This 33-nucleotide RNA belongs to the Rfam family "S16-Flavobacteria ribosomal protein leader". Pairs were carried over by alignment from the consensus structure, which is taken from published work. For this family Rfam cites "Discovery of 20 novel ribosomal leader candidates in bacteria and archaea" (Eckert and Weinberg, BMC Microbiol, 2020). It is annotated as a cis-regulatory leader.
RNA sequence: UUAAUAACCCGGGUCGAGUACCCAAAAUAUUGA
Numbered sequence: 001u002u003a004a005u006a007a008c009c010c011g012g013g014u015c016g017a018g019u020a021c022c023c024a025a026a027a028u029a030u031u032g033a
Stems, first nucleotide, its partner, number of pairs: 001033006011023004